This 88-nucleotide sequence belongs to the Rfam family "c-di-GMP-II-GAG riboswitch aptamer". Rfam's curators put it in the seed alignment. Its family is annotated with cyclic-di-GMP binding and regulation of gene expression in the Gene Ontology. Clan: c-di-GMP_II riboswitch clan.
[Rfam]
RNA sequence: GCGCGUUUGGGAAGCUUUGAUCUCUCGACGUACUUCGCGGUCACCUUUUGUCGGGGGGGAGCUAGCGGUGAGACCGGCCCUUAUCAGG
Numbered sequence: 001g002c003g004c005g006u007u008u009g010g011g012a013a014g015c016u017u018u019g020a021u022c023u024c025u026c027g028a029c030g031u032a033c034u035u036c037g038c039g040g041u042c043a044c045c046u047u048u049u050g051u052c053g054g055g056g057g058g059g060a061g062c063u064a065g066c067g068g069u070g071a072g073a074c075c076g077g078c079c080c081u082u083a084u085c086a087g088g
Stems, first nucleotide, its partner, number of pairs: 002087001005084002009080003013063003022057008039075002041071005
Dot-bracket structure: .(..((..(((.(((......((((((((.........[[[[[[[....))))))))...)))...]]]]]..]]..)))..))..).